A member of the RNA family "Bacterial RNase P class A" from Dorea sp. D27, 350 nucleotides long. The base pairs follow the family's consensus structure, which is taken from published work. About the family: Ribonuclease P (RNase P) is a ubiquitous endoribonuclease, found in archaea, bacteria and eukarya as well as chloroplasts and mitochondria. Lineage of the source: Bacteria > Bacillota > Clostridia > Lachnospiraceae > Dorea. It is annotated as a ribozyme.
RNA sequence: CAAGUAAGACAGGUAAUCGCAGCUGCGAAGGCCGAAAGGCUGCAGGUGAGGAAAGUCCGGGCUUCACAGGGCAGGAUGCCGGAUAACGUCCGGUGGAGGCGACUCCAAGGCCAGUGCAACAGAAAUGUACCGCCCAGUUCAUCUGGGUAAGGUUGGAAGGGCAGUGUAAGAGACUACCGCCUCCCUGGCAACAGGGAGGGCACAUGUAAACCCCAUCCGAAGCAAGACCGGAUAAAGGCAUUGUGGCGGCCCGCCACGCCUUAGGUAGGUUGCUGGAACCUGCUGGCGACAGCAGGUCUAGAUAGAUGAUUACCCAACGACAUAACCCGGCUUAUCGUCUUGCUUGCCUA
Numbered sequence: 001c002a003a004g005u006a007a008g009a010c011a012g013g014u015a016a017u018c019g020c021a022g023c024u025g026c027g028a029a030g031g032c033c034g035a036a037a038g039g040c041u042g043c044a045g046g047u048g049a050g051g052a053a054a055g056u057c058c059g060g061g062c063u064u065c066a067c068a069g070g071g072c073a074g075g076a077u078g079c080c081g082g083a084u085a086a087c088g089u090c091c092g093g094u095g096g097a098g099g100c101g102a103c104u105c106c107a108a109g110g111c112c113a114g115u116g117c118a119a120c121a122g123a124a125a126u127g128u129a130c131c132g133c134c135c136a137g138u139u140c141a142u143c144u145g146g147g148u149a150a151g152g153u154u155g156g157a158a159g160g161g162c163a164g165u166g167u168a169a170g171a172g173a174c175u176a177c178c179g180c181c182u183c184c185c186u187g188g189c190a191a192c193a194g195g196g197a198g199g200g201c202a203c204a205u206g207u208a209a210a211c212c213c214c215a216u217c218c219g220a221a222g223c224a225a226g227a228c229c230g231g232a233u234a235a236a237g238g239c240a241u242u243g244u245g246g247c248g249g250c251c252c253g254c255c256a257c258g259c260c261u262u263a264g265g266u267a268g269g270u271u272g273c274u275g276g277a278a279c280c281u282g283c284u285g286g287c288g289a290c291a292g293c294a295g296g297u298c299u300a301g302a303u304a305g306a307u308g309a310u311u312a313c314c315c316a317a318c319g320a321c322a323u324a325a326c327c328c329g330g331c332u333u334a335u336c337g338u339c340u341u342g343c344u345u346g347c348c349u350a
Base pairs, nucleotide, nucleotide: 001346002345003344004343005342006341007340008339009338010337011335012314013313014312015311016310017309018308020048021047023045024044025043026042027041053333054332055331057330058329059328060327061326062222063221064220065219069252070251071250072249074218075217076216077215078214079093080092081091082090083089094108095106096105097104098103109213110212114211115210116207117206118205130152131151132148133147134146135145136144137143160178161177163175164174165173179201180199181198182197183196184195185194186193187192226271227270228269229268236261237260238259239258243257244256245255246254247253278297279296280295281294282293283292284291285290